This 70-nucleotide sequence from Strongylocentrotus purpuratus belongs to the Rfam family "tRNA". It is annotated as a transfer RNA. The family's consensus secondary structure is taken from published work. The sequence is in the family's curated seed alignment. The source organism's lineage runs through Eukaryota, Metazoa, Echinozoa, Echinidea and Strongylocentrotus. From the family's description: Transfer RNA (tRNA) molecules are approximately 80 nucleotides in length.
[Rfam]
RNA sequence: AGAGGCCUAGUUAAACUUAUAACUUUGGGUUGUCAGGCCAAAAUUGCUGGUUAAACUCCAGCGGCUUCUG
Number, nucleotide and partner (000 for none) at each position: 001a069002g068003a067004g066005g065006c064007c063008u000009a000010g023011u022012u021013a020014a000015a000016c000017u000018u000019a000020u013021a012022a011023c010024u000025u041026u040027g039028g038029g000030u000031u000032g000033u000034c000035a000036g000037g000038c028039c027040a026041a025042a000043a000044u000045u000046g062047c061048u060049g059050g058051u000052u000053a000054a000055a000056c000057u000058c050059c049060a048061g047062c046063g007064g006065c005066u004067u003068c002069u001070g000